RNA sequence: CCCAACAUGAUAUAAUCACCUUUGCGAGAAGUUUUAUGGGCGGUGGCUGUUUUCUCGAGAUGAGGUGGUUCCAACGAGCUAUUCUUCAGAAAGGAUUACGACCCGUGAGUGUCUAUCAGGCACUCAUGCUAGCGUUAGCAUUUGCGGCUUUUGUCAUUACAUUACUAACCUUUA
Numbered sequence: 001c002c003c004a005a006c007a008u009g010a011u012a013u014a015a016u017c018a019c020c021u022u023u024g025c026g027a028g029a030a031g032u033u034u035u036a037u038g039g040g041c042g043g044u045g046g047c048u049g050u051u052u053u054c055u056c057g058a059g060a061u062g063a064g065g066u067g068g069u070u071c072c073a074a075c076g077a078g079c080u081a082u083u084c085u086u087c088a089g090a091a092a093g094g095a096u097u098a099c100g101a102c103c104c105g106u107g108a109g110u111g112u113c114u115a116u117c118a119g120g121c122a123c124u125c126a127u128g129c130u131a132g133c134g135u136u137a138g139c140a141u142u143u144g145c146g147g148c149u150u151u152u153g154u155c156a157u158u159a160c161a162u163u164a165c166u167a168a169c170c171u172u173u174a
Stems, first nucleotide, its partner, number of pairs: 043148002046145002062087002064083005070077002107127001109125001111123002114120001153169002156166001158164002

A member of the RNA family "Listeria sRNA rli28" from Fructilactobacillus sanfranciscensis, 174 nucleotides long. The source organism's lineage runs through Bacteria, Bacillota, Bacilli, Fructilactobacillus and Fructilactobacillus sanfranciscensis. The family has 21 seed sequences and 345 matches in Rfam 15.1. The family's RNA type in Rfam is small RNA.